[Rfam]
RNA sequence: CAUAAGCAUAUAGAGAAGGUUAAGACCUCGGCAACCUGGAUGACUAUCCAAGGUGCCUGAACAUGUGGCAGAAAUGCAACUAAUUAGUCGAAG
Numbered sequence: 001c002a003u004a005a006g007c008a009u010a011u012a013g014a015g016a017a018g019g020u021u022a023a024g025a026c027c028u029c030g031g032c033a034a035c036c037u038g039g040a041u042g043a044c045u046a047u048c049c050a051a052g053g054u055g056c057c058u059g060a061a062c063a064u065g066u067g068g069c070a071g072a073a074a075u076g077c078a079a080c081u082a083a084u085u086a087g088u089c090g091a092a093g
Stems, first nucleotide, its partner, number of pairs: 006066004015029001017028004030057003035053003038049003042089005068077003

This 93-nucleotide RNA belongs to the Rfam family "SAM-I/IV (S-adenosyl methionine) riboswitch aptamer". On this family, see Weinberg et al., RNA 2008: "The aptamer core of SAM-IV riboswitches mimics the ligand-binding site of SAM-I riboswitches". It is one of the family's seed sequences.